[Rfam]
RNA sequence: AGUGGCAAAACAGGCCAUAGCAGAAGCCCUCGCAGCGCGGCCCUGUCAUAUUCCAACGAAUCUGCAAAUUCUGCU
Numbered sequence: 001a002g003u004g005g006c007a008a009a010a011c012a013g014g015c016c017a018u019a020g021c022a023g024a025a026g027c028c029c030u031c032g033c034a035g036c037g038c039g040g041c042c043c044u045g046u047c048a049u050a051u052u053c054c055a056a057c058g059a060a061u062c063u064g065c066a067a068a069u070u071c072u073g074c075u
Base pairs, nucleotide, nucleotide: 013042014041015040016039019075020074021073022072023071024070025069026038027037047064048063050061051060052059053058
A member of the RNA family "Mammalian CPEB3 ribozyme" from Alligator sinensis, 75 nucleotides long. The match comes from Rfam's covariance-model search (46 bits).